RNA sequence: CUGCAUUCUGUAAACCCCCGACUUGUUUUGUAUCACAACAAGCCGGACAAAAAGGAAUGCAAAAUGAAAGCUCCAGAGAAUUCCAAAGUGCUGAGCUUCACUUGUGCUUUUCACUAUUUCACCUCUCUGACAAUU
Dot-bracket structure: ..((((..(.(......(((.(.(((...........))).).)))...).)....))))...(.......(..(((.........((((..(.((..(....).)).)..))))........)))..).....)
Small nucleolar RNA SNORA14: a 135-nucleotide RNA from Chiloscyllium punctatum. The family's consensus secondary structure was predicted with RNAfold. NCBI's taxonomy places the organism under Eukaryota, Craniata, Elasmobranchii, Galeomorphii, Chiloscyllium. Rfam links the family to the GO terms RNA processing and nucleolus. A search with the family's covariance model found it, with a score of 53 bits. Rfam 15.1 lists 848 matches to the family in 633 species. By type it is an H/ACA-box small nucleolar RNA.